mir-223 microRNA precursor family: an 86-nucleotide sequence from Xenopus laevis. A reference for the family is Lim et al. (2003), "Vertebrate microRNA genes", Science. The family has 27 seed sequences and 674 matches in Rfam 15.1. Lineage of the source: Eukaryota > Opisthokonta > Bilateria > Chordata > Xenopus. The base pairs follow the family's consensus structure, which was predicted with RNAalifold. Its family is annotated with miRNA-mediated post-transcriptional gene silencing and RISC complex in the Gene Ontology.
[Rfam]
RNA sequence: UGUGUGGCACUGAGUGUAUUUGACAAGCUGAGUCCGACACUCAGUGAGACAGAGUGUCAGUUUGUCAAAUACCCCAAGUGAGGCAC
Dot-bracket structure: .......((((..(.((((((((((((((......((((.((.........)).)))))))))))))))))).)..))))......